[Rfam]
The record is a 131-nucleotide RNA sequence from Tupaia belangeri, which matches "Small nucleolar RNA SNORA38" in Rfam. The organism belongs to Tupaia belangeri, within Eukaryota. Rfam describes the family as follows. ACA38 is a member of the H/ACA class of snoRNA that guide the sites of modification of uridines to pseudouridines. A search with the family's covariance model found it, with a score of 105 bits.
RNA sequence: GCCUCCUACAUAGACGUGUCUGCAGUUUCCUGCGUUUGAACAUGGAAGAAAUGGAGGCAAAGAAACGUGGAUCUGAAGAUUCUAGGGCCAGCAUUGCUCCCUGUAGGCUCAAGAUCAACCUUCCUACAUAG
Numbered sequence: 001g002c003c004u005c006c007u008a009c010a011u012a013g014a015c016g017u018g019u020c021u022g023c024a025g026u027u028u029c030c031u032g033c034g035u036u037u038g039a040a041c042a043u044g045g046a047a048g049a050a051a052u053g054g055a056g057g058c059a060a061a062g063a064a065a066c067g068u069g070g071a072u073c074u075g076a077a078g079a080u081u082c083u084a085g086g087g088c089c090a091g092c093a094u095u096g097c098u099c100c101c102u103g104u105a106g107g108c109u110c111a112a113g114a115u116c117a118a119c120c121u122u123c124c125u126a127c128a129u130a131g
Stems, first nucleotide, its partner, number of pairs: 002057005015044005021038001025029001069124003090109003094106004
It is annotated as an H/ACA-box small nucleolar RNA.